Shown here is a 72-nucleotide sequence from Myotis myotis, a member of the family "mir-9193 microRNA precursor family". The family has 2 seed sequences and 6,008 matches in Rfam 15.1. Taxonomically the source falls in Myotis (Eukaryota, Bilateria, Sarcopterygii, Mammalia). Rfam links the family to the GO terms RISC complex and miRNA-mediated post-transcriptional gene silencing.
[Rfam]
RNA sequence: CUCGGGGGGGGGGUCUCUCAGCCUGGAUUGUGAGAGGGCACAGGCCAGGCCGAGGGACCCCACCAGUGCAUG
Numbered sequence: 001c002u003c004g005g006g007g008g009g010g011g012g013g014u015c016u017c018u019c020a021g022c023c024u025g026g027a028u029u030g031u032g033a034g035a036g037g038g039c040a041c042a043g044g045c046c047a048g049g050c051c052g053a054g055g056g057a058c059c060c061c062a063c064c065a066g067u068g069c070a071u072g
Stems, first nucleotide, its partner, number of pairs: 004069001007064002010061010021050003025046002028043005